Annotation: The family of this 45-nucleotide sequence from Ketogulonicigenium vulgare is "Guanidine-II riboswitch aptamer (mini-ykkC)". From the family's description: Simpler in structure and has fewer highly conserved nucleotide positions than the ykkC-yxkD leader. Despite this each of its two stem-loop structures directly bind free guanidine. Therefore, mini-ykkC RNA motif represents a distinct class of guanidine-sensing RNAs. Its crystal structure was also determined. The organism belongs to Ketogulonicigenium vulgare, within Bacteria.

[Rfam]
RNA sequence: GGCGUGGGACGACCCACAUUUUCAUGCAUGUCUCGGGACGACCCG
Numbered sequence: 001g002g003c004g005u006g007g008g009a010c011g012a013c014c015c016a017c018a019u020u021u022u023c024a025u026g027c028a029u030g031u032c033u034c035g036g037g038a039c040g041a042c043c044c045g
Stems, first nucleotide, its partner, number of pairs: 001020002004017005034045004